[Rfam]
RNA sequence: AGCUUUGCACAGUGGCAGUAUUGUAGCCAAUGAGGUUUAUCCGAGGCGCAAUUAUUGCUAAUUGAAAACUUAAACAUGUAAAAAAUGGGAUUAACUUAUUUAUUUAAAAUAUAUUUCGGAUAUGAU
Numbered sequence: 001a002g003c004u005u006u007g008c009a010c011a012g013u014g015g016c017a018g019u020a021u022u023g024u025a026g027c028c029a030a031u032g033a034g035g036u037u038u039a040u041c042c043g044a045g046g047c048g049c050a051a052u053u054a055u056u057g058c059u060a061a062u063u064g065a066a067a068a069c070u071u072a073a074a075c076a077u078g079u080a081a082a083a084a085a086u087g088g089g090a091u092u093a094a095c096u097u098a099u100u101u102a103u104u105u106a107a108a109a110u111a112u113a114u115u116u117c118g119g120a121u122a123u124g125a126u
Stems, first nucleotide, its partner, number of pairs: 020052005026047003034042002079106002081103001083101007
Shown here is a 126-nucleotide RNA from Leptonychotes weddellii, a member of the family "U4 spliceosomal RNA".
The base pairs follow the family's consensus structure, which is taken from published work.